[Rfam]
RNA sequence: GAGUCUAACAUGUGUGCGAGUCAUUGGGCGCACUAAACCCAAAGGCGUAAUGAAAGUGAAAGGGGGGCGUCCCGGAGUCCUUGUGGCUCCGGCUGGCGCCCUCCGGGGCCGAUCCUUGACUGUUUGAUGCCGCUUGGGUUUAUCCCAUACCAAAGCGGGGCUAAAGGGAUAAUGCUAGGCGGGGUGAGUUCCUUUCCCCCGUCCAUCUCUGGCCUCGUGGGUACCCGGCGCGCUCUAAAUCGACGGUCCGGACUCUCUUUACGGGGAGUUCGCCUGUACGCAGGGGGGCGCAGGCCCGGGACUUGCCAUUUGACGCUGUUGCGCGAAUCUGUUGUUGACCUCACUGGCUUUGCUUGGGCUCUCGGUUGGUGCGGUGCGUCUGGGCGGGCUUUGGGUGGGGGCUUCGGCUUCUGCCCGGGUUCGUCCGGCGCGUCCGUGCCUUCCGAUCCUGCUCUGUCCGGAGUGGCCUAGCGUGCGUGCUGUCGGCAAGUACCAUGAGCAGACAUGUUGGGA
Numbered sequence: 001g002a003g004u005c006u007a008a009c010a011u012g013u014g015u016g017c018g019a020g021u022c023a024u025u026g027g028g029c030g031c032a033c034u035a036a037a038c039c040c041a042a043a044g045g046c047g048u049a050a051u052g053a054a055a056g057u058g059a060a061a062g063g064g065g066g067g068c069g070u071c072c073c074g075g076a077g078u079c080c081u082u083g084u085g086g087c088u089c090c091g092g093c094u095g096g097c098g099c100c101c102u103c104c105g106g107g108g109c110c111g112a113u114c115c116u117u118g119a120c121u122g123u124u125u126g127a128u129g130c131c132g133c134u135u136g137g138g139u140u141u142a143u144c145c146c147a148u149a150c151c152a153a154a155g156c157g158g159g160g161c162u163a164a165a166g167g168g169a170u171a172a173u174g175c176u177a178g179g180c181g182g183g184g185u186g187a188g189u190u191c192c193u194u195u196c197c198c199c200c201g202u203c204c205a206u207c208u209c210u211g212g213c214c215u216c217g218u219g220g221g222u223a224c225c226c227g228g229c230g231c232g233c234u235c236u237a238a239a240u241c242g243a244c245g246g247u248c249c250g251g252a253c254u255c256u257c258u259u260u261a262c263g264g265g266g267a268g269u270u271c272g273c274c275u276g277u278a279c280g281c282a283g284g285g286g287g288g289c290g291c292a293g294g295c296c297c298g299g300g301a302c303u304u305g306c307c308a309u310u311u312g313a314c315g316c317u318g319u320u321g322c323g324c325g326a327a328u329c330u331g332u333u334g335u336u337g338a339c340c341u342c343a344c345u346g347g348c349u350u351u352g353c354u355u356g357g358g359c360u361c362u363c364g365g366u367u368g369g370u371g372c373g374g375u376g377c378g379u380c381u382g383g384g385c386g387g388g389c390u391u392u393g394g395g396u397g398g399g400g401g402c403u404u405c406g407g408c409u410u411c412u413g414c415c416c417g418g419g420u421u422c423g424u425c426c427g428g429c430g431c432g433u434c435c436g437u438g439c440c441u442u443c444c445g446a447u448c449c450u451g452c453u454c455u456g457u458c459c460g461g462a463g464u465g466g467c468c469u470a471g472c473g474u475g476c477g478u479g480c481u482g483u484c485g486g487c488a489a490g491u492a493c494c495a496u497g498a499g500c501a502g503a504c505a506u507g508u509u510g511g512g513a
Stems, first nucleotide, its partner, number of pairs: 005511009015501003020046003025041004050057002106297005114288004299494002301491006
The record is a 513-nucleotide part of an RNA from Chionoecetes opilio, which matches "Eukaryotic large subunit ribosomal RNA" in Rfam. Lineage of the source: Eukaryota > Eumetazoa > Protostomia > Communostraca > Chionoecetes. A search with the family's covariance model found it, with a score of 1652 bits.